The record is a 197-nucleotide RNA from Youngiibacter fragilis, which matches "T-box leader" in Rfam.

RNA sequence: AAUAAACCAUUGAAGAGAUUAGUAGCCUUCUUUCAGGCAGAUAGAGACAGGGUGGUUUGGUGAAAACCCGAUGCUUGAUACAGGUGAAUCCGCCUCGGAGGGGCUGCGACGAGCAGCACGGUCACACCGUUACAUGUGUUUGAGGAUGGUUAUUACCAUUGAAUUAGGGUGGCACCGCGAGUCAUAUCGUCCCUUCG
Dot-bracket structure: ......((......(((.......((((........(((..........((((............))))..))).......))))........)))...)).(((((.....))))).(((.....)))...............((((((....)))))).....((((.......((((......))))))))...

Uncharged tRNA acts as the effector for transcription antitermination of genes in the T-box leader family. T-boxes are found upstream of many aminoacyl-tRNA synthetase genes and some amino acid biosynthetic genes usually in Gram-positive bacteria. By type it is a cis-regulatory leader.